[Rfam]
RNA sequence: GGGGUGAUGGUGCAGUUGGGAGCUCGUCUGACUGAAGUUUCAUAAGAAUCUGAUUAUCAGAAGGUCACCGGUUCGAUCCCGGUUCACCCCA
Numbered sequence: 001g002g003g004g005u006g007a008u009g010g011u012g013c014a015g016u017u018g019g020g021a022g023c024u025c026g027u028c029u030g031a032c033u034g035a036a037g038u039u040u041c042a043u044a045a046g047a048a049u050c051u052g053a054u055u056a057u058c059a060g061a062a063g064g065u066c067a068c069c070g071g072u073u074c075g076a077u078c079c080c081g082g083u084u085c086a087c088c089c090c091a
Stems, first nucleotide, its partner, number of pairs: 001090007010025001012023002027061005067083005
Rfam assigns this 91-nucleotide RNA from Aspergillus terreus to the family "tRNA".
Lineage of the source: Eukaryota > Pezizomycotina > Eurotiomycetidae > Eurotiales > Aspergillus subgen. Circumdati.
Transfer RNA (tRNA) molecules are approximately 80 nucleotides in length.
Rfam classes the family as a transfer RNA.
Rfam links the family to the GO term triplet codon-amino acid adaptor activity.